[Rfam]
RNA sequence: GCGCGUCACCGGGGGUGCCCUUCAAACGGGCUGAGACAUACCCCAGGAACCUGAUCCGGGUCAUUCCGGCGGAGGGAGAGUGACCGGGCCAGCCG
Numbered sequence: 001g002c003g004c005g006u007c008a009c010c011g012g013g014g015g016u017g018c019c020c021u022u023c024a025a026a027c028g029g030g031c032u033g034a035g036a037c038a039u040a041c042c043c044c045a046g047g048a049a050c051c052u053g054a055u056c057c058g059g060g061u062c063a064u065u066c067c068g069g070c071g072g073a074g075g076g077a078g079a080g081u082g083a084c085c086g087g088g089c090c091a092g093c094c095g
Base pairs, nucleotide, nucleotide: 006083007082008081009080011044012043013042014041016038017031018030019029020028050075051074052073056069057068058067059066
Rfam assigns this 95-nucleotide sequence from Deinococcus sp. Leaf326 to the family "TPP riboswitch aptamer (THI element)".